The family of this 67-nucleotide RNA sequence from Psychrobacillus psychrotolerans is "Bacillaceae-1 RNA".
RNA sequence: AUAAGAGGAACUAAGGCUAAGAACGCCACUUCGUGUGGCAAAGCCUUCGUGACCAACAUCCUGUUGG
Numbered sequence: 001a002u003a004a005g006a007g008g009a010a011c012u013a014a015g016g017c018u019a020a021g022a023a024c025g026c027c028a029c030u031u032c033g034u035g036u037g038g039c040a041a042a043g044c045c046u047u048c049g050u051g052a053c054c055a056a057c058a059u060c061c062u063g064u065u066g067g
Stems, first nucleotide, its partner, number of pairs: 011049001013047005025039005053067005

NCBI's taxonomy places the organism under Bacteria, Bacillati, Bacilli, Bacillaceae, Psychrobacillus.